[Rfam]
RNA sequence: UCUGUGCGGCUACUUACGAAAAACUUAUCUGUGUUACUCGCGAAUUGAUUCCUAUGAAUUUGUUGGAGUGUCAAACUAAGUUGAGAAAGAAGUUGAAUGUCUUAAUGCCCUAUUCAUGCAAUCUGCUCAUGACCAGAGCUUGUGAGAGGGCUGGUGAUUCGUACAAAG
Numbered sequence: 001u002c003u004g005u006g007c008g009g010c011u012a013c014u015u016a017c018g019a020a021a022a023a024c025u026u027a028u029c030u031g032u033g034u035u036a037c038u039c040g041c042g043a044a045u046u047g048a049u050u051c052c053u054a055u056g057a058a059u060u061u062g063u064u065g066g067a068g069u070g071u072c073a074a075a076c077u078a079a080g081u082u083g084a085g086a087a088a089g090a091a092g093u094u095g096a097a098u099g100u101c102u103u104a105a106u107g108c109c110c111u112a113u114u115c116a117u118g119c120a121a122u123c124u125g126c127u128c129a130u131g132a133c134c135a136g137a138g139c140u141u142g143u144g145a146g147a148g149g150g151c152u153g154g155u156g157a158u159u160c161g162u163a164c165a166a167a168g
Stems, first nucleotide, its partner, number of pairs: 022082006036069004044059003094161005111149001113148003117144004125139002